Shown here is a 154-nucleotide RNA from Gossypium klotzschianum, a member of the family "MIR7502 microRNA precursor family". The source organism's lineage runs through Eukaryota, Tracheophyta, Spermatophyta, Mesangiospermae and Gossypium. Gene Ontology terms of the family: RISC complex and miRNA-mediated post-transcriptional gene silencing.
RNA sequence: UAUUAAAAGUUUCAUCCAUUUAUGCUAUUAAAAAUUAGUCUAUGUAUGGCAUGUAUGUCAGCAUGAGGUACACGUGAUACGCCAUGUAUAACUAUUUGGUUAUUUUGUCAGCCACAUUAGUUUUUAACAGUAGAAAUAGAUUAAAAUUUUAAUU
Numbered sequence: 001u002a003u004u005a006a007a008a009g010u011u012u013c014a015u016c017c018a019u020u021u022a023u024g025c026u027a028u029u030a031a032a033a034a035u036u037a038g039u040c041u042a043u044g045u046a047u048g049g050c051a052u053g054u055a056u057g058u059c060a061g062c063a064u065g066a067g068g069u070a071c072a073c074g075u076g077a078u079a080c081g082c083c084a085u086g087u088a089u090a091a092c093u094a095u096u097u098g099g100u101u102a103u104u105u106u107g108u109c110a111g112c113c114a115c116a117u118u119a120g121u122u123u124u125u126a127a128c129a130g131u132a133g134a135a136a137u138a139g140a141u142u143a144a145a146a147u148u149u150u151a152a153u154u
Stems, first nucleotide, its partner, number of pairs: 002153007010145003014141003018137004023132004028127012